[Rfam]
RNA sequence: ACCCCUUUGGAAUAAGCAUUCAAGGCACUGUAUUAGUUUAAUAUCUGAUAUGUUCUCUAUAUGAGAACUCUAUAUUAAAUAGAUUUUUGAAAUAGGGAAAGGGAAUAGGAGCUUGCUCCAUCCUUUCCAUGCAUUGACCUGGUAUUGCAGUGUUUCCAGGAAAAAAAAAAAAAAA
Numbered sequence: 001a002c003c004c005c006u007u008u009g010g011a012a013u014a015a016g017c018a019u020u021c022a023a024g025g026c027a028c029u030g031u032a033u034u035a036g037u038u039u040a041a042u043a044u045c046u047g048a049u050a051u052g053u054u055c056u057c058u059a060u061a062u063g064a065g066a067a068c069u070c071u072a073u074a075u076u077a078a079a080u081a082g083a084u085u086u087u088u089g090a091a092a093u094a095g096g097g098a099a100a101g102g103g104a105a106u107a108g109g110a111g112c113u114u115g116c117u118c119c120a121u122c123c124u125u126u127c128c129a130u131g132c133a134u135u136g137a138c139c140u141g142g143u144a145u146u147g148c149a150g151u152g153u154u155u156c157c158a159g160g161a162a163a164a165a166a167a168a169a170a171a172a173a174a175a
Base pairs, nucleotide, nucleotide: 003010004009031050032049033048034047035046036045052068053067054066055065056064057063096128097127098126099125100124101123102122103121108119109118110117111116134165135164138160139159140158141157142156
Dot-bracket structure: ..((....))....................((((((........)))))).((((((.....))))))...........................((((((((....((((....)))).)))))))).....((..(((((.............)))))...))..........
Shown here is a 175-nucleotide sequence from Pelusios castaneus, a member of the family "U2 spliceosomal RNA". For this family Rfam cites "The uRNA database" (Zwieb, Nucleic Acids Res, 1997). The source organism's lineage runs through Eukaryota, Chordata, Amniota, Pleurodira and Pelusios. U2 is a small nuclear RNA (snRNA) component of the spliceosome (involved in pre-mRNA splicing).